[Rfam]
RNA: Pseudomon-Rho RNA
RNA sequence: UUCGGCCCCGCAACGGCUUCUCCGUUGCCCCCUGCUAGCCGUCGCCGACGCUCUCCUUUCGAUUUAGUACGCGAUCCUGUCGCCUUUUCUGCGGCGCGGC
Numbered sequence: 001u002u003c004g005g006c007c008c009c010g011c012a013a014c015g016g017c018u019u020c021u022c023c024g025u026u027g028c029c030c031c032c033u034g035c036u037a038g039c040c041g042u043c044g045c046c047g048a049c050g051c052u053c054u055c056c057u058u059u060c061g062a063u064u065u066a067g068u069a070c071g072c073g074a075u076c077c078u079g080u081c082g083c084c085u086u087u088u089c090u091g092c093g094g095c096g097c098g099g100c
Base pairs, nucleotide, nucleotide: 010028011027012026013025014024015023038100039099040098041097043096044095045094046093047092071083072082073081074080075079